[Rfam]
RNA sequence: CUCCGAUAAUAGCAAACUUAUUGAAAGAUAAGGGCGCAAAGCCACGGGCCUAAAGCAGACUGCUAAGGCAGCCGGGUUGCCGAA
Numbered sequence: 001c002u003c004c005g006a007u008a009a010u011a012g013c014a015a016a017c018u019u020a021u022u023g024a025a026a027g028a029u030a031a032g033g034g035c036g037c038a039a040a041g042c043c044a045c046g047g048g049c050c051u052a053a054a055g056c057a058g059a060c061u062g063c064u065a066a067g068g069c070a071g072c073c074g075g076g077u078u079g080c081c082g083a084a
Stems, first nucleotide, its partner, number of pairs: 012037002017032006040078004045074003048069003055063003
The family of this 84-nucleotide RNA sequence from Domibacillus iocasae is "c-di-GMP-I riboswitch aptamer". The organism belongs to Domibacillus, within Bacteria. A search with the family's covariance model found it, with a score of 84 bits. Pairs were carried over by alignment from the consensus structure, which is taken from published work.